This 505-nucleotide RNA sequence from Streptomyces sp. Go-475 belongs to the Rfam family "Saccharopolyspora sRNA 350".
RNA sequence: CGGGCGGUGUACUCCCAGAUGGCGUCCUGGUUCAGCAGGGCCUGGUCGCCGAAGUAGGCGCCGUCGGCGAGGACGCCGAGCGACUCGUCGUCGCCGUACGGGCCCGUGCCGAUCUUCUCCACCCUGCCGUGUGCGAGCAGGUACACCUCGUCGGACUGGCUGCCGAAGGAGGCGAUCACCUCGCCCGCCUGGAUCUCCCGCUGUUCGCAGCGGCGGGCGAUCUCGGAGAGCACCUCCUCGUCCUCGUACGACCGCAGCGCGGGCAGUUCGCCCAGCUCCGCGGGGAUGAUCUCGACCCGGUCGCCGGUCUUCACGAACGUCAUCCGGCCGUCGCCCACGGCGAACGUCAGUCGCCGGUUCACCCGGUAUGUACCACCCUGGAUGUCCACCCAGGGCAGCAUGCGCAGCAGCCAGCGAGAGCUGAUCUCCUGCAUCUGCGGCACGGACUUGGUCGUGGUGGCCAGGUUCCGCGCGGCCGCCGUGCCGAGACUCUGCUGCGGCUUGG
Numbered sequence: 001c002g003g004g005c006g007g008u009g010u011a012c013u014c015c016c017a018g019a020u021g022g023c024g025u026c027c028u029g030g031u032u033c034a035g036c037a038g039g040g041c042c043u044g045g046u047c048g049c050c051g052a053a054g055u056a057g058g059c060g061c062c063g064u065c066g067g068c069g070a071g072g073a074c075g076c077c078g079a080g081c082g083a084c085u086c087g088u089c090g091u092c093g094c095c096g097u098a099c100g101g102g103c104c105c106g107u108g109c110c111g112a113u114c115u116u117c118u119c120c121a122c123c124c125u126g127c128c129g130u131g132u133g134c135g136a137g138c139a140g141g142u143a144c145a146c147c148u149c150g151u152c153g154g155a156c157u158g159g160c161u162g163c164c165g166a167a168g169g170a171g172g173c174g175a176u177c178a179c180c181u182c183g184c185c186c187g188c189c190u191g192g193a194u195c196u197c198c199c200g201c202u203g204u205u206c207g208c209a210g211c212g213g214c215g216g217g218c219g220a221u222c223u224c225g226g227a228g229a230g231c232a233c234c235u236c237c238u239c240g241u242c243c244u245c246g247u248a249c250g251a252c253c254g255c256a257g258c259g260c261g262g263g264c265a266g267u268u269c270g271c272c273c274a275g276c277u278c279c280g281c282g283g284g285g286a287u288g289a290u291c292u293c294g295a296c297c298c299g300g301u302c303g304c305c306g307g308u309c310u311u312c313a314c315g316a317a318c319g320u321c322a323u324c325c326g327g328c329c330g331u332c333g334c335c336c337a338c339g340g341c342g343a344a345c346g347u348c349a350g351u352c353g354c355c356g357g358u359u360c361a362c363c364c365g366g367u368a369u370g371u372a373c374c375a376c377c378c379u380g381g382a383u384g385u386c387c388a389c390c391c392a393g394g395g396c397a398g399c400a401u402g403c404g405c406a407g408c409a410g411c412c413a414g415c416g417a418g419a420g421c422u423g424a425u426c427u428c429c430u431g432c433a434u435c436u437g438c439g440g441c442a443c444g445g446a447c448u449u450g451g452u453c454g455u456g457g458u459g460g461c462c463a464g465g466u467u468c469c470g471c472g473c474g475g476c477c478g479c480c481g482u483g484c485c486g487a488g489a490c491u492c493u494g495c496u497g498c499g500g501c502u503u504g505g
Stems, first nucleotide, its partner, number of pairs: 006390004011385002015381002018328001021325002025322001028319002031316002037311006045305001047303002049300003054233002059228001061226003065111004075103001077100002080097003084093001120219001122217002127212001130209001131206001133204001135199001137197001140196002146192002150189001152187003156183001157178002161174003235295002240290003244286002249283001252280001254278001256277003259271003329342004353377001356374002361371002391431005397425001399423002403418001405416001407415001437476002440473001443470004447465006477504002480499003487496002
Description: A reference for the family is Liu et al. (2013), "Prediction and characterization of small non-coding RNAs related to secondary metabolites in Saccharopolyspora erythraea", PLoS One. Pairs were carried over by alignment from the consensus structure, which was predicted with RNAfold. Rfam classes the family as an antisense RNA.